[Rfam]
Rfam assigns this 107-nucleotide sequence from Oryza rufipogon to the family "MIR1846 microRNA precursor family". The base pairs follow the family's consensus structure, which was predicted with RNAalifold. For this family Rfam cites "Characterization and expression profiles of miRNAs in rice seeds" (Xue et al., Nucleic Acids Res, 2009). Taxonomically the source falls in Oryza (Eukaryota, Poaceae, Oryzoideae, Oryzeae).
RNA sequence: CCGCUCCCUCCUAAUGAGCCGCCGGAUCUCCCAGUGAGGAGGCCGGGGCCGCUGAAUCCGGUGACCCCGGUCUCCUCGCUGGCGGAUCCGGCGCAAAGACGCCCCAC
Numbered sequence: 001c002c003g004c005u006c007c008c009u010c011c012u013a014a015u016g017a018g019c020c021g022c023c024g025g026a027u028c029u030c031c032c033a034g035u036g037a038g039g040a041g042g043c044c045g046g047g048g049c050c051g052c053u054g055a056a057u058c059c060g061g062u063g064a065c066c067c068c069g070g071u072c073u074c075c076u077c078g079c080u081g082g083c084g085g086a087u088c089c090g091g092c093g094c095a096a097a098g099a100c101g102c103c104c105c106a107c
Base pairs, nucleotide, nucleotide: 007101009099010098012096018094019093021092022091023090024089025088026087027086028085029084031082032081034079035078036077037076038075039074040073041072042071043070044069045068046067047066048065050063051062052061053060054059